[Rfam]
RNA sequence: UUUUUAGAGUGGAUAUAGAGUCUGAAAAACUCAUAAAUCUUGUGUUGUCAUCAGCUUCUUCUCUUGCUACCUUGUAUGGGAUUGGAGUCAAAAAAUAACACUAGAUCC
Numbered sequence: 001u002u003u004u005u006a007g008a009g010u011g012g013a014u015a016u017a018g019a020g021u022c023u024g025a026a027a028a029a030c031u032c033a034u035a036a037a038u039c040u041u042g043u044g045u046u047g048u049c050a051u052c053a054g055c056u057u058c059u060u061c062u063c064u065u066g067c068u069a070c071c072u073u074g075u076a077u078g079g080g081a082u083u084g085g086a087g088u089c090a091a092a093a094a095a096u097a098a099c100a101c102u103a104g105a106u107c108c
Stems, first nucleotide, its partner, number of pairs: 042101006054088005060081004
RNA: Small nucleolar RNA snoR97
Organism: Trema andersonii